Histidine operon leader: a 127-nucleotide RNA. From the family's description: At least 6 amino acid operons are known to be regulated by attenuation. In each a leader sequence of 150-200 bp is found upstream of the first gene in the operon. This leader sequence can assume two different secondary structures known as the terminator and the anti-terminator structure. In each case the leader also codes for very short peptide sequence that is rich in the end product amino acid of the operon. By type it is a cis-regulatory leader. Its family is annotated with histidine biosynthetic process in the Gene Ontology.
RNA sequence: AAUUCUCGAGAAUUCUCGAGAAAUCUCUCGAGAAAUUUUUCUCGAGAACGUUCUCGAGAAUUCUCGAGAAAUCUCUCGAGAGAUCUCUCGAGAAUUCUCGAGAAAAAUUUCUCGAGAAUUCUCGAGA
Numbered sequence: 001a002a003u004u005c006u007c008g009a010g011a012a013u014u015c016u017c018g019a020g021a022a023a024u025c026u027c028u029c030g031a032g033a034a035a036u037u038u039u040u041c042u043c044g045a046g047a048a049c050g051u052u053c054u055c056g057a058g059a060a061u062u063c064u065c066g067a068g069a070a071a072u073c074u075c076u077c078g079a080g081a082g083a084u085c086u087c088u089c090g091a092g093a094a095u096u097c098u099c100g101a102g103a104a105a106a107a108u109u110u111c112u113c114g115a116g117a118a119u120u121c122u123c124g125a126g127a
Stems, first nucleotide, its partner, number of pairs: 008040007015032005041068008089124016
It scores 51 bits against the family's covariance model.